Record summary
Rfam assigns this 148-nucleotide sequence from Brachypodium distachyon to the family "Small nucleolar RNA Z247". NCBI's taxonomy places the organism under Eukaryota, Streptophytina, Euphyllophyta, Magnoliopsida, Brachypodium.
RNA sequence: AACCUUGACGAUGACGACAUGGUGGCAUACCUGCUUGCAUGACUUGACAUCGAGUACACCCCUUUGGUUACCUCUGUUACUACUGACCUUAGUCGUAAUGGUAAGGUUUCCGUGAGUGAUCUUUACUCGCAGAUGGUGAGCUUCGACG
Numbered sequence: 001a002a003c004c005u006u007g008a009c010g011a012u013g014a015c016g017a018c019a020u021g022g023u024g025g026c027a028u029a030c031c032u033g034c035u036u037g038c039a040u041g042a043c044u045u046g047a048c049a050u051c052g053a054g055u056a057c058a059c060c061c062c063u064u065u066g067g068u069u070a071c072c073u074c075u076g077u078u079a080c081u082a083c084u085g086a087c088c089u090u091a092g093u094c095g096u097a098a099u100g101g102u103a104a105g106g107u108u109u110c111c112g113u114g115a116g117u118g119a120u121c122u123u124u125a126c127u128c129g130c131a132g133a134u135g136g137u138g139a140g141c142u143u144c145g146a147c148g
Base pairs, nucleotide, nucleotide: 005146006145007144008143082117083116084115086113087112
Record summary
A search with the family's covariance model found it, with a score of 43 bits. The family's RNA type in Rfam is C/D-box small nucleolar RNA.